[Rfam]
RNA sequence: ACAAACGCGGGAGGCGUUGACACACGGUCCCCAACCCGGUCGCCUGGACCGUGCCGAGCCAUUGGCGAGACCGCCCCGCGAUCAG
Numbered sequence: 001a002c003a004a005a006c007g008c009g010g011g012a013g014g015c016g017u018u019g020a021c022a023c024a025c026g027g028u029c030c031c032c033a034a035c036c037c038g039g040u041c042g043c044c045u046g047g048a049c050c051g052u053g054c055c056g057a058g059c060c061a062u063u064g065g066c067g068a069g070a071c072c073g074c075c076c077c078g079c080g081a082u083c084a085g
Stems, first nucleotide, its partner, number of pairs: 004082001006080006013060003023053007038072002040068005
This 85-nucleotide RNA sequence belongs to the Rfam family "c-di-GMP-II-GAG riboswitch aptamer". A reference for the family is Weinberg et al. (2017), "Bioinformatic analysis of riboswitch structures uncovers variant classes with altered ligand specificity", Proc Natl Acad Sci U S A. Rfam links the family to the GO terms cyclic-di-GMP binding and regulation of gene expression. Pairs were carried over by alignment from the consensus structure, which is taken from published work.